Background:
This 89-nucleotide RNA sequence from Cryptosporangium aurantiacum belongs to the Rfam family "tRNA". A search with the family's covariance model found it, with a score of 53 bits. It is annotated as a transfer RNA. The base pairs follow the family's consensus structure, which is taken from published work.
RNA sequence: GGAGGGCUCGCCUAGUGGCCGAUGGCGGCAGUCUUGAAAACUGCUACACCGGGGAACCGGUGUCGUGGGUUCGAAUCCCACGCCCUCCG
Numbered sequence: 001g002g003a004g005g006g007c008u009c010g011c012c013u014a015g016u017g018g019c020c021g022a023u024g025g026c027g028g029c030a031g032u033c034u035u036g037a038a039a040a041c042u043g044c045u046a047c048a049c050c051g052g053g054g055a056a057c058c059g060g061u062g063u064c065g066u067g068g069g070u071u072c073g074a075a076u077c078c079c080a081c082g083c084c085c086u087c088c089g
Stems, first nucleotide, its partner, number of pairs: 001088007010026003028044005065081005